[Rfam]
RNA sequence: CACUGCCAACAGCAGCACAAAAGUAAGGGUGGCAUGGUAUGAUAUUACUACCCUUACUUCUGUGCUGCUGCUGGUGGGG
Numbered sequence: 001c002a003c004u005g006c007c008a009a010c011a012g013c014a015g016c017a018c019a020a021a022a023g024u025a026a027g028g029g030u031g032g033c034a035u036g037g038u039a040u041g042a043u044a045u046u047a048c049u050a051c052c053c054u055u056a057c058u059u060c061u062g063u064g065c066u067g068c069u070g071c072u073g074g075u076g077g078g079g
Stems, first nucleotide, its partner, number of pairs: 001079001003077001005075003011069008020059001022058008